The family of this 55-nucleotide sequence is "Glutamine riboswitch aptamer (glnA leader)". The literature on the family includes a 2011 paper in RNA Biol by Ames and Breaker, "Bacterial aptamers that selectively bind glutamine". Rfam's curators put it in the seed alignment. Rfam links the family to the GO term glutamine binding.

[Rfam]
RNA sequence: AUCGUUCAAUUCUUGUUAAAGAAUCGGAAGUAGGGGUGACCCAAAGGAACGCGGA
Numbered sequence: 001a002u003c004g005u006u007c008a009a010u011u012c013u014u015g016u017u018a019a020a021g022a023a024u025c026g027g028a029a030g031u032a033g034g035g036g037u038g039a040c041c042c043a044a045a046g047g048a049a050c051g052c053g054g055a
Stems, first nucleotide, its partner, number of pairs: 003051005009024005027052001033042003